[Rfam]
RNA sequence: UUCUUAUCCAGAAAGGUUGAGGGACAGGCCCUGUGAAACCUUAGCAACCGGUUCCGGCAGAGAUGCUGGAAUGUUAGGUGCUAAAUCCUGCCCGGAGUGAUUUAUCAAAUAAUCAGCUCAGGGAAAGAUGAGAU
Numbered sequence: 001u002u003c004u005u006a007u008c009c010a011g012a013a014a015g016g017u018u019g020a021g022g023g024a025c026a027g028g029c030c031c032u033g034u035g036a037a038a039c040c041u042u043a044g045c046a047a048c049c050g051g052u053u054c055c056g057g058c059a060g061a062g063a064u065g066c067u068g069g070a071a072u073g074u075u076a077g078g079u080g081c082u083a084a085a086u087c088c089u090g091c092c093c094g095g096a097g098u099g100a101u102u103u104a105u106c107a108a109a110u111a112a113u114c115a116g117c118u119c120a121g122g123g124a125a126a127g128a129u130g131a132g133a134u
Base pairs, nucleotide, nucleotide: 002133003132004131005130006129007128008127013042014041015040016039017038021031022030023029025090026089027088028087043082044081045080046079048078049077050074086126091123092122093121095119096118097117098116
Rfam assigns this 134-nucleotide RNA sequence from Rhodohalobacter sp. SW132 to the family "SAM riboswitch aptamer (S box leader)".
Its family is annotated with regulation of gene expression in the Gene Ontology.